[Rfam]
RNA sequence: AUCCAAGUGGGCGAUGGAGUCCGCCCUUCGUGCAAAAACCGCCGUCGUGGCUGAUGACUCCUACCGAUGC
Numbered sequence: 001a002u003c004c005a006a007g008u009g010g011g012c013g014a015u016g017g018a019g020u021c022c023g024c025c026c027u028u029c030g031u032g033c034a035a036a037a038a039c040c041g042c043c044g045u046c047g048u049g050g051c052u053g054a055u056g057a058c059u060c061c062u063a064c065c066g067a068u069g070c
Stems, first nucleotide, its partner, number of pairs: 010025004016061006041051003
Dot-bracket structure: .........[[[[..((((((]]]]...............(((.....)))....)))))).........
The family of this 70-nucleotide sequence from Hephaestia caeni is "Fluoride riboswitch aptamer (crcB RNA motif)". It scores 55 bits against the family's covariance model.